Description
A member of the RNA family "c-di-AMP riboswitch aptamer (ydaO/yuaA leader)" from Allocoleopsis franciscana, 160 nucleotides long. Gene Ontology terms of the family: regulation of gene expression and cyclic-di-AMP binding. A search with the family's covariance model found it, with a score of 70 bits.
[Rfam]
RNA sequence: CCAGGGUAGUAACCCAAACAACAGGUAAAGCUGGAGCGGAGGAACCAACAUUUGGGGCGUAUCUCUCAACUCUGUUUCAUUGUGUAAGCAACAGAGCAGAGAAGGACAUCUCUCAGUCCUAGCCCGUCAGCUAACUUCGUAGGCAUUGAGGGGAGACUGA
Numbered sequence: 001c002c003a004g005g006g007u008a009g010u011a012a013c014c015c016a017a018a019c020a021a022c023a024g025g026u027a028a029a030g031c032u033g034g035a036g037c038g039g040a041g042g043a044a045c046c047a048a049c050a051u052u053u054g055g056g057g058c059g060u061a062u063c064u065c066u067c068a069a070c071u072c073u074g075u076u077u078c079a080u081u082g083u084g085u086a087a088g089c090a091a092c093a094g095a096g097c098a099g100a101g102a103a104g105g106a107c108a109u110c111u112c113u114c115a116g117u118c119c120u121a122g123c124c125c126g127u128c129a130g131c132u133a134a135c136u137u138c139g140u141a142g143g144c145a146u147u148g149a150g151g152g153g154a155g156a157c158u159g160a
Stems, first nucleotide, its partner, number of pairs: 001034004036140006046054002055125003063101004104119004